A member of the RNA family "Bacterial small signal recognition particle RNA" from Ruficoccus amylovorans, 99 nucleotides long. NCBI's taxonomy places the organism under Bacteria, Pseudomonadati, Opitutia, Puniceicoccales, Ruficoccus.
RNA sequence: GGCCGGGUCCCAUGCAACGACGAACCGGCGAAUCCCGCCAGAUCCGGAAGGAAGCAACGGUAGUCAGGAUUCGCGUGUGCCGUGGGGUGCCUGGCCUUU
Numbered sequence: 001g002g003c004c005g006g007g008u009c010c011c012a013u014g015c016a017a018c019g020a021c022g023a024a025c026c027g028g029c030g031a032a033u034c035c036c037g038c039c040a041g042a043u044c045c046g047g048a049a050g051g052a053a054g055c056a057a058c059g060g061u062a063g064u065c066a067g068g069a070u071u072c073g074c075g076u077g078u079g080c081c082g083u084g085g086g087g088u089g090c091c092u093g094g095c096c097u098u099u
Stems, first nucleotide, its partner, number of pairs: 004093005009086006015077001017076003021073003025067001027065003035060003043052003
Dot-bracket structure: ...((((((((((((.(((.(((.(.(((.....(((.....(((....))).....)))..))).)...)))))))...))))))..)))))......